[Rfam]
RNA: Exoribonuclease-resistant RNA (xrRNA) plant-infecting virus (class 3)
RNA sequence: AACACUAGCCAGGCACACACGAGUUGCAAGCACUGGAAGUUUAAGUCUCGUUA
Number, nucleotide and partner (000 for none) at each position: 001a041002a040003c000004a000005c000006u000007a000008g000009c036010c035011a000012g034013g031014c030015a000016c000017a000018c000019a051020c050021g049022a048023g047024u000025u000026g000027c000028a000029a000030g014031c013032a000033c000034u012035g010036g009037a000038a000039g000040u002041u001042u000043a000044a000045g000046u000047c023048u022049c021050g020051u019052u000053a000